RNA sequence: CCUCAAGGAUCAAAGGCUAAGAGCGCAACGUCCUGUUGCAACGCCUUUGUGACCAACAUCCUAUUGG
Numbered sequence: 001c002c003u004c005a006a007g008g009a010u011c012a013a014a015g016g017c018u019a020a021g022a023g024c025g026c027a028a029c030g031u032c033c034u035g036u037u038g039c040a041a042c043g044c045c046u047u048u049g050u051g052a053c054c055a056a057c058a059u060c061c062u063a064u065u066g067g
Stems, first nucleotide, its partner, number of pairs: 011049007025039005053067004
Bacillaceae-1 RNA: a 67-nucleotide RNA from Ureibacillus manganicus. Pairs were carried over by alignment from the consensus structure, which is taken from published work.